Annotation
The family of this 82-nucleotide RNA from Menidia menidia is "Small nucleolar RNA SNORD72". From the family's description: snoRNA HBII-240 belongs to the CD family of snoRNAs. It is the human orthologue of the mouse MBII-240 and is predicted to guide 2'O-ribose methylation of the large 28S rRNA at residue U4590. For this family Rfam cites "RNomics: an experimental approach that identifies 201 candidates for novel, small, non-messenger RNAs in mouse" (Huttenhofer et al., EMBO J, 2001). Rfam 15.1 lists 726 matches to the family in 499 species. The match comes from Rfam's covariance-model search (48 bits). Rfam links the family to the GO terms nucleolus and RNA processing. It is annotated as a C/D-box small nucleolar RNA.

RNA sequence: GUCUUGUCUGUGAUGCGUUCAAACACAAAUGUCUGAACAUAUGACUUUCUGUGAUUCACACUUUUUCUGACUGAGACAAGAC
Numbered sequence: 001g002u003c004u005u006g007u008c009u010g011u012g013a014u015g016c017g018u019u020c021a022a023a024c025a026c027a028a029a030u031g032u033c034u035g036a037a038c039a040u041a042u043g044a045c046u047u048u049c050u051g052u053g054a055u056u057c058a059c060a061c062u063u064u065u066u067c068u069g070a071c072u073g074a075g076a077c078a079a080g081a082c
Stems, first nucleotide, its partner, number of pairs: 002081007